Background: A member of the RNA family "skipping-rope RNA", 80 nucleotides long.

RNA sequence: AUUAGUCGAGGGUAGAAAGGUUCCUACCGCACCUUGUAAAAGGUAUCUGAGAUGCUCCAUACACCGCGGAGCCGAUUAAU
Numbered sequence: 001a002u003u004a005g006u007c008g009a010g011g012g013u014a015g016a017a018a019g020g021u022u023c024c025u026a027c028c029g030c031a032c033c034u035u036g037u038a039a040a041a042g043g044u045a046u047c048u049g050a051g052a053u054g055c056u057c058c059a060u061a062c063a064c065c066g067c068g069g070a071g072c073c074g075a076u077u078a079a080u
Base pairs, nucleotide, nucleotide: 001080002079003078004077005076006075007074008073011028012027013026014025015024019065020064021063030049031044032043033042034041054072055071056070057069058068
It is annotated as a small RNA. Pairs were carried over by alignment from the consensus structure, which is taken from published work.